About this RNA
This 75-nucleotide sequence from Petromyzon marinus belongs to the Rfam family "mir-27 microRNA precursor family". Its family is annotated with RISC complex and miRNA-mediated post-transcriptional gene silencing in the Gene Ontology.
[Rfam]
RNA sequence: UCCGGUGAAGGGCUUAACCCACCUGUGAGCAGCGCUUUACGAUAAGUGUUCACAGUGGCUAAGUUCUGCAUCUGU
Numbered sequence: 001u002c003c004g005g006u007g008a009a010g011g012g013c014u015u016a017a018c019c020c021a022c023c024u025g026u027g028a029g030c031a032g033c034g035c036u037u038u039a040c041g042a043u044a045a046g047u048g049u050u051c052a053c054a055g056u057g058g059c060u061a062a063g064u065u066c067u068g069c070a071u072c073u074g075u
Stems, first nucleotide, its partner, number of pairs: 010066007018058002025053007
For this family Rfam cites "The developmental miRNA profiles of zebrafish as determined by small RNA cloning" (Chen et al., Genes Dev, 2005).